[Rfam]
RNA sequence: GGAUGUGAGAUGAUGAAUGAUUAAUUUCCCUAUUGGUUUGAUUGGCUGAUAUGAUGGCCUCAAUACUGAACCGAGUCUGAUCCUCAUCC
Numbered sequence: 001g002g003a004u005g006u007g008a009g010a011u012g013a014u015g016a017a018u019g020a021u022u023a024a025u026u027u028c029c030c031u032a033u034u035g036g037u038u039u040g041a042u043u044g045g046c047u048g049a050u051a052u053g054a055u056g057g058c059c060u061c062a063a064u065a066c067u068g069a070a071c072c073g074a075g076u077c078u079g080a081u082c083c084u085c086a087u088c089c
Stems, first nucleotide, its partner, number of pairs: 002088004040061001044059004
This 89-nucleotide sequence from Triticum aestivum belongs to the Rfam family "Small nucleolar RNA Z102/R77".
The base pairs follow the family's consensus structure, which was predicted with PFOLD.
By type it is a C/D-box small nucleolar RNA.
The match comes from Rfam's covariance-model search (53 bits).
Its Rfam clan is "SNORD44 clan".